Notes
Rfam assigns this 69-nucleotide sequence to the family "Fluoride riboswitch aptamer (crcB RNA motif)". The family's consensus secondary structure is taken from published work. The family has 289 seed sequences and 2,293 matches in Rfam 15.1.
RNA sequence: ACGUCGCGUGGUGGUGGAGUCCACCUGAACCGCCGCUCUGACUGGACGGCCAAUGACUCCUACGCAUAG
Number, nucleotide and partner (000 for none) at each position: 001a000002c000003g000004u000005c000006g000007c000008g000009u000010g025011g024012u023013g022014g000015u000016g060017g059018a058019g057020u056021c055022c013023a012024c011025c010026u000027g000028a000029a000030c000031c000032g050033c049034c048035g047036c000037u000038c000039u000040g000041a000042c000043u000044g000045g000046a000047c035048g034049g033050c032051c000052a000053a000054u000055g021056a020057c019058u018059c017060c016061u000062a000063c000064g000065c000066a000067u000068a000069g000